tRNA: an 83-nucleotide RNA sequence from Spartobacteria bacterium LR76. Rfam links the family to the GO term triplet codon-amino acid adaptor activity. On this family, see Lowe and Eddy, Nucleic Acids Res 1997: "tRNAscan-SE: a program for improved detection of transfer RNA genes in genomic sequence". The match comes from Rfam's covariance-model search (56 bits).
RNA sequence: GGGUAGGUACCGAAGUGGCCAAACGGGGCGGACUGUAAAUCCGCUGGCUUACGCCUUCAGUGGUUCGAAUCCACUCCUGCCCA
Numbered sequence: 001g002g003g004u005a006g007g008u009a010c011c012g013a014a015g016u017g018g019c020c021a022a023a024c025g026g027g028g029c030g031g032a033c034u035g036u037a038a039a040u041c042c043g044c045u046g047g048c049u050u051a052c053g054c055c056u057u058c059a060g061u062g063g064u065u066c067g068a069a070u071c072c073a074c075u076c077c078u079g080c081c082c083a
Base pairs, nucleotide, nucleotide: 001082002081003080004079005078006077007076010026011025012024028044029043030042031041032040059075060074061073062072063071